[Rfam]
RNA: A. fumigatus sRNA Afu_309
Organism: Hypoxylon sp. CO27-5
RNA sequence: UUCUUCUACACAAUCACGGAUCUGUGUCCGAUCGUCCUCUGUUCGCCCAGCGAAUUCAGAGUUGAUGGUCGCGGCAGCUCGAAUCACCUAUGGAACCAUCUUAUUCAUGAUGUCAAUCUAAUCGACAGGUCCAAGAUUAAGGAGCAGUCUGGAAAGCCUGAGCUCGCCGUCAAAAGCUGAGCUCGGUGGACCAGGCUUGCUGCAGGUCUUAUAUUCCACCCCUUUUUUCCGAGAUCAUUGAUCUAUGAGGUUGAGGAAAACCAUAAGAGCUCCUACAUAU
Numbered sequence: 001u002u003c004u005u006c007u008a009c010a011c012a013a014u015c016a017c018g019g020a021u022c023u024g025u026g027u028c029c030g031a032u033c034g035u036c037c038u039c040u041g042u043u044c045g046c047c048c049a050g051c052g053a054a055u056u057c058a059g060a061g062u063u064g065a066u067g068g069u070c071g072c073g074g075c076a077g078c079u080c081g082a083a084u085c086a087c088c089u090a091u092g093g094a095a096c097c098a099u100c101u102u103a104u105u106c107a108u109g110a111u112g113u114c115a116a117u118c119u120a121a122u123c124g125a126c127a128g129g130u131c132c133a134a135g136a137u138u139a140a141g142g143a144g145c146a147g148u149c150u151g152g153a154a155a156g157c158c159u160g161a162g163c164u165c166g167c168c169g170u171c172a173a174a175a176g177c178u179g180a181g182c183u184c185g186g187u188g189g190a191c192c193a194g195g196c197u198u199g200c201u202g203c204a205g206g207u208c209u210u211a212u213a214u215u216c217c218a219c220c221c222c223u224u225u226u227u228u229c230c231g232a233g234a235u236c237a238u239u240g241a242u243c244u245a246u247g248a249g250g251u252u253g254a255g256g257a258a259a260a261c262c263a264u265a266a267g268a269g270c271u272c273c274u275a276c277a278u279a280u
Stems, first nucleotide, its partner, number of pairs: 018132008026075003029071003033067004037061005043054001044052003084124001086122001091115003095111001097109001144200003147196006157185001160184006166177002205273002208267005222256004229250002233243004